RNA sequence: UGUGAACAGGUCUGUGGUUGAAAGUCGAAGCCAGUCGCAGGCAAAACGAUCCACGUAAGGUAUACAAAGGUGUACUGAGCAUGGUGCGGCUUAGAAGUAAGUCCUGCCGAGAAAAUCGAGAGAGUGAGUUGUGAGAGGUAAAUACCGGGUAGCUAAAAUUCCAGCAGGCGAGUGUGGGGUCAAAAACCAGGUCAGCUGUUUAUA
Numbered sequence: 001u002g003u004g005a006a007c008a009g010g011u012c013u014g015u016g017g018u019u020g021a022a023a024g025u026c027g028a029a030g031c032c033a034g035u036c037g038c039a040g041g042c043a044a045a046a047c048g049a050u051c052c053a054c055g056u057a058a059g060g061u062a063u064a065c066a067a068a069g070g071u072g073u074a075c076u077g078a079g080c081a082u083g084g085u086g087c088g089g090c091u092u093a094g095a096a097g098u099a100a101g102u103c104c105u106g107c108c109g110a111g112a113a114a115a116u117c118g119a120g121a122g123a124g125u126g127a128g129u130u131g132u133g134a135g136a137g138g139u140a141a142a143u144a145c146c147g148g149g150u151a152g153c154u155a156a157a158a159u160u161c162c163a164g165c166a167g168g169c170g171a172g173u174g175u176g177g178g179g180u181c182a183a184a185a186a187c188c189a190g191g192u193c194a195g196c197u198g199u200u201u202a203u204a
Stems, first nucleotide, its partner, number of pairs: 001204009012195003015189005028175001030173001031041001033091007050084002058076002082182001103168005108118003122161004131153002137146003

A member of the RNA family "raiA RNA", 204 nucleotides long. It is annotated as a riboswitch. It is one of the family's seed sequences.